RNA sequence: GCGCGCUGGCGGGGUCGGUGAAAUUCCGAGCCGGCGGUAAUCAGACCACGCAGUCUGUCAGUCCGCGACCCGGUCACAGCCAGUGACCGGUGGAUCUGGUGAGAAUCCAGAACCGACGGUGAGAGUCCGGAAGGGAGUUAGCGCGC
Numbered sequence: 001g002c003g004c005g006c007u008g009g010c011g012g013g014g015u016c017g018g019u020g021a022a023a024u025u026c027c028g029a030g031c032c033g034g035c036g037g038u039a040a041u042c043a044g045a046c047c048a049c050g051c052a053g054u055c056u057g058u059c060a061g062u063c064c065g066c067g068a069c070c071c072g073g074u075c076a077c078a079g080c081c082a083g084u085g086a087c088c089g090g091u092g093g094a095u096c097u098g099g100u101g102a103g104a105a106u107c108c109a110g111a112a113c114c115g116a117c118g119g120u121g122a123g124a125g126u127c128c129g130g131a132a133g134g135g136a137g138u139u140a141g142c143g144c145g146c
Base pairs, nucleotide, nucleotide: 003144004143005142006141007140008139009138010137016028017027018026030126031125032115033114034066035065036064037063061113062112070090071089095111096110097109098108099107117129118128119127
Rfam assigns this 146-nucleotide RNA from Natronoglycomyces albus to the family "FMN riboswitch aptamer (RFN element)". The family's consensus secondary structure is taken from published work.